The family of this 129-nucleotide RNA sequence from Galemys pyrenaicus is "Small nucleolar RNA SNORA49".
Rfam describes the family as follows. The snoRNA ACA49 has no identified RNA target. NB genomic sequence 1-nt different from published.

RNA sequence: UGCCUAUUGACCUUACUCUGGGGGCUUUUGCUGUGAAGUGCCCUGGCAUUGCCAGAGGGUACACAAAAAGCACUUGUCCCUCCCCAGGGAGAUUGUUUUCCUUUGGAGCCUACAAAAAGGGCUGACAAU
Dot-bracket structure: ..(((.(((..(.....(((((((((((......))))).))))))....).))).))).........(((.((.......(.((((.(.((......)).))))).).........)).)))......
Background: Taxonomically the source falls in Galemys (Eukaryota, Chordata, Vertebrata, Eutheria).